[Rfam]
RNA sequence: UCAGUCGGCCGGACGGCCGCUCCGGCAAGCGCCGAAAGGCCGCCGGGGAGGAAAGUCCGGGCUCCAUCGACAUACGGUGCCGGAUAACGUCCGGCGGGGGCGACCCCAGGGAAAGUGCCACAGAGAACGAACCGCUUCCCCCUCCCCUCGGGGUGGGGGCGAGUAAGGGUGAAAAGGUGCGGUAAGAGCGCACCGCGUCGCCGGCAACGGAGACGGCAUGGUAAACCCCACCGGGAGCAAAACCGAAUAGGGACGGCAUCGCGGACAGUUCGCUUUCGGGCGAUAACUCCGCAGGGCGAUGUCAGGCUCGCCGUCCGGGUAGGUUGCUCGAGGCCAUGUGCAAACAUGGUCCCAGAGGAAUGGCCGUCACGUAUCGGCUGCGCAAGCAGCCGGUGCCCUCCAGAACCCGGCUUACAGGCCGACUGAUACU
Numbered sequence: 001u002c003a004g005u006c007g008g009c010c011g012g013a014c015g016g017c018c019g020c021u022c023c024g025g026c027a028a029g030c031g032c033c034g035a036a037a038g039g040c041c042g043c044c045g046g047g048g049a050g051g052a053a054a055g056u057c058c059g060g061g062c063u064c065c066a067u068c069g070a071c072a073u074a075c076g077g078u079g080c081c082g083g084a085u086a087a088c089g090u091c092c093g094g095c096g097g098g099g100g101c102g103a104c105c106c107c108a109g110g111g112a113a114a115g116u117g118c119c120a121c122a123g124a125g126a127a128c129g130a131a132c133c134g135c136u137u138c139c140c141c142c143u144c145c146c147c148u149c150g151g152g153g154u155g156g157g158g159g160c161g162a163g164u165a166a167g168g169g170u171g172a173a174a175a176g177g178u179g180c181g182g183u184a185a186g187a188g189c190g191c192a193c194c195g196c197g198u199c200g201c202c203g204g205c206a207a208c209g210g211a212g213a214c215g216g217c218a219u220g221g222u223a224a225a226c227c228c229c230a231c232c233g234g235g236a237g238c239a240a241a242a243c244c245g246a247a248u249a250g251g252g253a254c255g256g257c258a259u260c261g262c263g264g265a266c267a268g269u270u271c272g273c274u275u276u277c278g279g280g281c282g283a284u285a286a287c288u289c290c291g292c293a294g295g296g297c298g299a300u301g302u303c304a305g306g307c308u309c310g311c312c313g314u315c316c317g318g319g320u321a322g323g324u325u326g327c328u329c330g331a332g333g334c335c336a337u338g339u340g341c342a343a344a345c346a347u348g349g350u351c352c353c354a355g356a357g358g359a360a361u362g363g364c365c366g367u368c369a370c371g372u373a374u375c376g377g378c379u380g381c382g383c384a385a386g387c388a389g390c391c392g393g394u395g396c397c398c399u400c401c402a403g404a405a406c407c408c409g410g411c412u413u414a415c416a417g418g419c420c421g422a423c424u425g426a427u428a429c430u
Base pairs, nucleotide, nucleotide: 001426002425003424004423005422006421007420008419009418010417011415012368013367014366015365016364017363018362020048021047022046023045024044025043026042053413054412055411057410058409059408060407061406062237063236064235065234075233076232077231078230079229080094081093082092083091084090095109096107097106098105099104110228111227115226116225117222118221119220132168133167134164135163136162137161139159140158141157142156176194177193178192179191180190181189195217196215197214198213199212201210202209203208241325242324243323244322251316252315253314254313255312256311294309295308296307297306332351333350334349335348336347337346338345339344